Rfam assigns this 81-nucleotide sequence from Synaphobranchus kaupii to the family "mir-190 microRNA precursor family".
The match comes from Rfam's covariance-model search (63 bits).
[Rfam]
RNA sequence: GGAGCUGUGUGAUAUGUUUGAUAUUCGGUUGUUCUACAGUGUAACACAUCAACGAAAUAUCAGACAUAUUCCUACAGAGCC
Numbered sequence: 001g002g003a004g005c006u007g008u009g010u011g012a013u014a015u016g017u018u019u020g021a022u023a024u025u026c027g028g029u030u031g032u033u034c035u036a037c038a039g040u041g042u043a044a045c046a047c048a049u050c051a052a053c054g055a056a057a058u059a060u061c062a063g064a065c066a067u068a069u070u071c072c073u074a075c076a077g078a079g080c081c
Stems, first nucleotide, its partner, number of pairs: 005077005011070015028053004